Shown here is a 108-nucleotide RNA from Chlorobium sp., a member of the family "SAM-I/IV (S-adenosyl methionine) riboswitch aptamer". It scores 57 bits against the family's covariance model. For this family Rfam cites "The aptamer core of SAM-IV riboswitches mimics the ligand-binding site of SAM-I riboswitches" (Weinberg et al., RNA, 2008).

RNA sequence: AUAAAUCAUCAGGAGAAGUCUUUUUACGAGACUCGCCAACCGAGCCAAAUGGUCACGGUGGCAAUGCAUCAAAGCAGAUGUGCCCGUAAGGGAAAAAGCUAAAAACCG
Numbered sequence: 001a002u003a004a005a006u007c008a009u010c011a012g013g014a015g016a017a018g019u020c021u022u023u024u025u026a027c028g029a030g031a032c033u034c035g036c037c038a039a040c041c042g043a044g045c046c047a048a049a050u051g052g053u054c055a056c057g058g059u060g061g062c063a064a065u066g067c068a069u070c071a072a073a074g075c076a077g078a079u080g081u082g083c084c085c086g087u088a089a090g091g092g093a094a095a096a097a098g099c100u101a102a103a104a105a106c107c108g
Base pairs, nucleotide, nucleotide: 007080008079009078010077015034017033018032019031020030021029035062036061037060040058041057042056044053045052050101051100083092084091085090